[Rfam]
RNA sequence: AGUUGAUGUGAUAUUUCCUUUCGUAUAUCCUUAAUAAUCGGUUUAAGGGUCUCUACCGGGAACCGUAAAUUUCCGGCUACGAAAUGUGCCACCGGCAUG
Numbered sequence: 001a002g003u004u005g006a007u008g009u010g011a012u013a014u015u016u017c018c019u020u021u022c023g024u025a026u027a028u029c030c031u032u033a034a035u036a037a038u039c040g041g042u043u044u045a046a047g048g049g050u051c052u053c054u055a056c057c058g059g060g061a062a063c064c065g066u067a068a069a070u071u072u073c074c075g076g077c078u079a080c081g082a083a084a085u086g087u088g089c090c091a092c093c094g095g096c097a098u099g
Stems, first nucleotide, its partner, number of pairs: 019084007029048006057075006
A member of the RNA family "Purine riboswitch aptamer" from Paenibacillus spiritus, 99 nucleotides long. The organism belongs to Paenibacillus, within Bacteria. Rfam's curators write: Riboswitches are metabolite binding domains within certain messenger RNAs that serve as precision sensors for their corresponding targets. Allosteric rearrangement of mRNA structure is mediated by ligand binding, and this results in modulation of gene expression. A class of riboswitches that selectively recognises guanine and becomes saturated at concentrations as low as 5 nM. In Bacillus subtilis, this mRNA motif is located on at least five separate transcriptional units that together encode 17 genes that are mostly involved in purine transport and purine nucleotide biosynthesis.